Rfam assigns this 225-nucleotide sequence from Novosphingobium chloroacetimidivorans to the family "permuted transfer-messenger RNA".

RNA sequence: GGUGAUAAAUUGCGGCGUGCAAUAGGCACAGCGGACCCGGGGGCGGUACCCGGCGGCUCCACCACUCCUCUCGUUUCGGCUUCGGUCGAGCGGGAGAAAUGACGGGGCCGAACUAGGAUCGACGUGUGUUCAAAAGCGCUGUUUUUGCCCGGGCUGAGUAACCCGUUCAAGGCUCAAAACCCAAUAAGUGCCAACGAUAACGAAGCACUUGCUCUCGCGGCGUAA
Numbered sequence: 001g002g003u004g005a006u007a008a009a010u011u012g013c014g015g016c017g018u019g020c021a022a023u024a025g026g027c028a029c030a031g032c033g034g035a036c037c038c039g040g041g042g043g044c045g046g047u048a049c050c051c052g053g054c055g056g057c058u059c060c061a062c063c064a065c066u067c068c069u070c071u072c073g074u075u076u077c078g079g080c081u082u083c084g085g086u087c088g089a090g091c092g093g094g095a096g097a098a099a100u101g102a103c104g105g106g107g108c109c110g111a112a113c114u115a116g117g118a119u120c121g122a123c124g125u126g127u128g129u130u131c132a133a134a135a136g137c138g139c140u141g142u143u144u145u146u147g148c149c150c151g152g153g154c155u156g157a158g159u160a161a162c163c164c165g166u167u168c169a170a171g172g173c174u175c176a177a178a179a180c181c182c183a184a185u186a187a188g189u190g191c192c193a194a195c196g197a198u199a200a201c202g203a204a205g206c207a208c209u210u211g212c213u214c215u216c217g218c219g220g221c222g223u224a225a
Stems, first nucleotide, its partner, number of pairs: 001149005015139004027128003031125003037053005054110007150165004
About this RNA: Rfam's curators write: Bacterial tmRNA, also known as 10Sa RNA or SsrA, is named for its dual tRNA and mRNA-like properties. Its role is to liberate the mRNA from a stalled ribosome. To accomplish this part of the tmRNA is used as a reading frame that ends in a translation stop signal. The broken mRNA is replaced in the ribosome by the tmRNA and translation of the tmRNA leads to addition of a proteolysis tag to the incomplete protein enabling recognition by a protease. The source organism's lineage runs through Bacteria, Pseudomonadati, Alphaproteobacteria, Sphingomonadaceae and Novosphingobium. A search with the family's covariance model found it, with a score of 133 bits.